MIR7504 microRNA precursor family: a 123-nucleotide RNA from Gossypium harknessii.
[Rfam]
RNA sequence: AAUAAAAGUACGACAAAUCAGAAUUUUCCUCCUAAUUUUUAGAUUUUUCUUCCUAAAAAAAUUCAAAUCCAACUUAAAAUACUAAAAAUCAAGAGAAAAAGUUUGAUUUGUCAUGCUUCUAUU
Numbered sequence: 001a002a003u004a005a006a007a008g009u010a011c012g013a014c015a016a017a018u019c020a021g022a023a024u025u026u027u028c029c030u031c032c033u034a035a036u037u038u039u040u041a042g043a044u045u046u047u048u049c050u051u052c053c054u055a056a057a058a059a060a061a062u063u064c065a066a067a068u069c070c071a072a073c074u075u076a077a078a079a080u081a082c083u084a085a086a087a088a089u090c091a092a093g094a095g096a097a098a099a100a101g102u103u104u105g106a107u108u109u110g111u112c113a114u115g116c117u118u119c120u121a122u123u
Stems, first nucleotide, its partner, number of pairs: 001123004006118005012112011024100004029095003033091001035089005041083002045079004
Dot-bracket structure: ((((.(((((.(((((((((((.((((.(((.(.(((((.((..((((...........................))))..)).))))).).))).)))).))))))))))).))))).))))
Notes:
Pairs were carried over by alignment from the consensus structure, which was predicted with RNAalifold. Its family is annotated with RISC complex and miRNA-mediated post-transcriptional gene silencing in the Gene Ontology. A search with the family's covariance model found it, with a score of 101 bits. Lineage of the source: Eukaryota > eudicotyledons > rosids > malvids > Gossypium.